[Rfam]
RNA sequence: UUCCCGCAGCGUAUCUGGCGUAACAUGGGCAACCAUGGGGGAGCGCAGCGUCAUACCGCCGUACGCCUGGGCAAAGCAU
Dot-bracket structure: ....(((.((((..(([[[[[...((((....))))..))..)))).))).......(((..]]]]]..))).......
Description: The family of this 79-nucleotide sequence from Paenibacillus hemerocallicola is "ZMP/ZTP riboswitch aptamer (pfl RNA motif)". A reference for the family is Jones et al. (2019), "Co-crystal structure of the Fusobacterium ulcerans ZTP riboswitch using an X-ray free-electron laser", Acta Crystallogr F Struct Biol Commun. The match comes from Rfam's covariance-model search (50 bits). NCBI's taxonomy places the organism under Bacteria, Bacillati, Bacillota, Paenibacillaceae, Paenibacillus.